Shown here is a 68-nucleotide RNA sequence from Liparis tanakae, a member of the family "miR-430 microRNA precursor family".
[Rfam]
RNA sequence: CAGAUAACCUCAAACGGAGACACUGAUGAUUCUUUACUUCAUAAGUGCUUCUCUUUGGGGUCGUCUUA
Numbered sequence: 001c002a003g004a005u006a007a008c009c010u011c012a013a014a015c016g017g018a019g020a021c022a023c024u025g026a027u028g029a030u031u032c033u034u035u036a037c038u039u040c041a042u043a044a045g046u047g048c049u050u051c052u053c054u055u056u057g058g059g060g061u062c063g064u065c066u067u068a
Stems, first nucleotide, its partner, number of pairs: 004064002007061005014055001016052004021047004026042003

The source organism's lineage runs through Eukaryota, Clupeocephala, Acanthomorphata, Eupercaria and Liparis. Gene Ontology terms of the family: RISC complex and miRNA-mediated post-transcriptional gene silencing.